The record is a 62-nucleotide RNA from Allosphingosinicella deserti, which matches "terC RNA" in Rfam. It is annotated as a cis-regulatory element. Taxonomically the source falls in Allosphingosinicella (Bacteria, Pseudomonadati, Pseudomonadota, Sphingomonadales).
RNA sequence: UCAGCGGGCCGGGCCCCUCUGGCAUGGCGUCUUCGAACCUCAUGCGAUGUCGGACCGCAUCG
Numbered sequence: 001u002c003a004g005c006g007g008g009c010c011g012g013g014c015c016c017c018u019c020u021g022g023c024a025u026g027g028c029g030u031c032u033u034c035g036a037a038c039c040u041c042a043u044g045c046g047a048u049g050u051c052g053g054a055c056c057g058c059a060u061c062g
Stems, first nucleotide, its partner, number of pairs: 006056002009053004022045006029038001